[Rfam]
RNA: MIR530 microRNA precursor family
Organism: Vigna radiata
Nucleotides: 198
Base pairs, nucleotide, nucleotide: 001198002197003196004195005194007192008191009190013188015186016185017184018183019182020181021180022179023178024177027174028173029172030171031170032169033168034167035166036165037164038163039162054117055116056115057114
Number, partner (000 for none) and nucleotide at each position: 001198u002197c003196c004195a005194a006000u007192a008191u009190g010000c011000u012000g013188c014000c015186u016185u017184u018183g019182c020181c021180u022179g023178c024177a025000u026000u027174u028173g029172c030171a031170c032169c033168u034167g035166c036165a037164c038163u039162u040000u041000a042000c043000u044000u045000g046000c047000u048000u049000u050000u051000c052000u053000c054117u055116c056115u057114u058000c059000a060000a061000c062000u063000a064000u065000c066000u067000a068000c069000c070000u071000g072000a073000a074000u075000u076000a077000g078000u079000c080000c081000c082000u083000a084000c085000a086000a087000a088000a089000c090000a091000c092000a093000c094000a095000u096000u097000u098000u099000c100000a101000u102000g103000g104000a105000a106000a107000a108000a109000a110000a111000c112000a113000c114057a115056a116055g117054a118000u119000u120000a121000c122000g123000u124000u125000g126000u127000g128000u129000a130000u131000g132000u133000g134000u135000g136000u137000g138000g139000g140000a141000a142000u143000g144000g145000a146000u147000g148000a149000g150000a151000a152000a153000c154000c155000a156000a157000g158000c159000a160000c161000g162039a163038g164037g165036u166035g167034c168033a169032g170031g171030u172029g173028c174027a175000u176000c177024u178023g179022c180021a181020g182019g183018c184017g185016a186015a187000u188013g189000a190009c191008a192007u193000c194005u195004u196003g197002g198001a